Rfam assigns this 54-nucleotide RNA from Coregonus sp. 'balchen' to the family "UnaL2 LINE 3' element".
NCBI's taxonomy places the organism under Eukaryota, Deuterostomia, Neopterygii, Euteleosteomorpha, Coregonus.
A search with the family's covariance model found it, with a score of 57 bits.
RNA sequence: GACUCACUGUACUGUAAAUCGCUUUGGAUAAAAGCAUCUGCCAAGUGGCAUUUA
Numbered sequence: 001g002a003c004u005c006a007c008u009g010u011a012c013u014g015u016a017a018a019u020c021g022c023u024u025u026g027g028a029u030a031a032a033a034g035c036a037u038c039u040g041c042c043a044a045g046u047g048g049c050a051u052u053u054a
Base pairs, nucleotide, nucleotide: 013043014041015040016039021035022034023033024032025031
By type it is a cis-regulatory element.